[Rfam]
RNA sequence: AUGCCGCCCCAACGGCUUCCUGACGGGGCGGAUUCACUUUAAAUGGAGCA
Numbered sequence: 001a002u003g004c005c006g007c008c009c010c011a012a013c014g015g016c017u018u019c020c021u022g023a024c025g026g027g028g029c030g031g032a033u034u035c036a037c038u039u040u041a042a043a044u045g046g047a048g049c050a
Stems, first nucleotide, its partner, number of pairs: 004031007013022002015049003019046002
The family of this 50-nucleotide RNA sequence is "SAM/SAH riboswitch aptamer". The literature on the family includes a 2019 paper in Nucleic Acids Res by Weickhmann et al., "The structure of the SAM/SAH-binding riboswitch". The family's consensus secondary structure is taken from published work.